RNA sequence: GUGGCCGAUCCGCCUAAUCCCGGCCGUGUCCCCGCACGCCGGGAACCGGGGACCCACCGGUGGCCGCGGCUCGCCCGCGCACCACCGCCCCUGGGGUGAAUCCGAGAGGGAGGCGUCACGAUCUCCGUGACCGAACGCGCUCGGUAGGGCUACUCCGGCCCGAACCCGUCAGCUAACCCGGUAGGCGUUCAAGGAGAGGAGCA
Numbered sequence: 001g002u003g004g005c006c007g008a009u010c011c012g013c014c015u016a017a018u019c020c021c022g023g024c025c026g027u028g029u030c031c032c033c034g035c036a037c038g039c040c041g042g043g044a045a046c047c048g049g050g051g052a053c054c055c056a057c058c059g060g061u062g063g064c065c066g067c068g069g070c071u072c073g074c075c076c077g078c079g080c081a082c083c084a085c086c087g088c089c090c091c092u093g094g095g096g097u098g099a100a101u102c103c104g105a106g107a108g109g110g111a112g113g114c115g116u117c118a119c120g121a122u123c124u125c126c127g128u129g130a131c132c133g134a135a136c137g138c139g140c141u142c143g144g145u146a147g148g149g150c151u152a153c154u155c156c157g158g159c160c161c162g163a164a165c166c167c168g169u170c171a172g173c174u175a176a177c178c179c180g181g182u183a184g185g186c187g188u189u190c191a192a193g194g195a196g197a198g199g200a201g202c203a
Stems, first nucleotide, its partner, number of pairs: 011187004018044007045182006055093002094167003102144004147161004
Dot-bracket structure: ..........((((...(((((((.............)))))))((((((....((...................................))(((.....((((...................................))))..((((.......))))...))).........)))))).))))................
This 203-nucleotide sequence from Sphaerisporangium rufum belongs to the Rfam family "c-di-AMP riboswitch aptamer (ydaO/yuaA leader)". Gene Ontology terms of the family: regulation of gene expression and cyclic-di-AMP binding. The family has 106 seed sequences and 7,607 matches in Rfam 15.1. NCBI's taxonomy places the organism under Bacteria, Bacillati, Actinomycetes, Streptosporangiaceae, Sphaerisporangium. A search with the family's covariance model found it, with a score of 68 bits.